[Rfam]
RNA sequence: AAUAAGUGAUGAAAAAAGUUUCGGUCCCAGAUGAUGUCCGAUGAUAAAUUACAUUUUUCUGAUAUU
Numbered sequence: 001a002a003u004a005a006g007u008g009a010u011g012a013a014a015a016a017a018g019u020u021u022c023g024g025u026c027c028c029a030g031a032u033g034a035u036g037u038c039c040g041a042u043g044a045u046a047a048a049u050u051a052c053a054u055u056u057u058u059c060u061g062a063u064a065u066u
Stems, first nucleotide, its partner, number of pairs: 001066004
The record is a 66-nucleotide RNA from Oryctolagus cuniculus, which matches "Small nucleolar RNA SNORD73" in Rfam. The family's RNA type in Rfam is C/D-box small nucleolar RNA. The literature on the family includes a 1998 paper in Gene by Rebane et al., "A novel snoRNA (U73) is encoded within the introns of the human and mouse ribosomal protein S3a genes". Taxonomically the source falls in Oryctolagus (Eukaryota, Vertebrata, Amniota, Euarchontoglires). Rfam links the family to the GO terms nucleolus and RNA processing.